[Rfam]
RNA: Small nucleolar RNA SNORD113/SNORD114 family
RNA sequence: UGGAUCAACGAUGACUCCUGGUGGCGCCUGAGUCAUGUACAACGAACGUGUGUCUGUCUGCCUGGGAGGCCCAG
Numbered sequence: 001u002g003g004a005u006c007a008a009c010g011a012u013g014a015c016u017c018c019u020g021g022u023g024g025c026g027c028c029u030g031a032g033u034c035a036u037g038u039a040c041a042a043c044g045a046a047c048g049u050g051u052g053u054c055u056g057u058c059u060g061c062c063u064g065g066g067a068g069g070c071c072c073a074g
Stems, first nucleotide, its partner, number of pairs: 002072002005069002